About this RNA: The record is an 88-nucleotide RNA from Nitrosospira multiformis, which matches "c-di-GMP-I riboswitch aptamer" in Rfam.
RNA sequence: AUCUGUAAAAGGCAAAUCUCGCGAAAGCGGGGGACGCAAAGUCAUCGGUCUACCGGGCUCAAGGCCCCAGGACGGCAGGACUGCCAGA
Numbered sequence: 001a002u003c004u005g006u007a008a009a010a011g012g013c014a015a016a017u018c019u020c021g022c023g024a025a026a027g028c029g030g031g032g033g034a035c036g037c038a039a040a041g042u043c044a045u046c047g048g049u050c051u052a053c054c055g056g057g058c059u060c061a062a063g064g065c066c067c068c069a070g071g072a073c074g075g076c077a078g079g080a081c082u083g084c085c086a087g088a
Stems, first nucleotide, its partner, number of pairs: 012037002017032006040082004045078001047076001048073003055067004
Rfam's curators put it in the seed alignment. NCBI's taxonomy places the organism under Bacteria, Pseudomonadati, Pseudomonadota, Betaproteobacteria, Nitrosospira multiformis.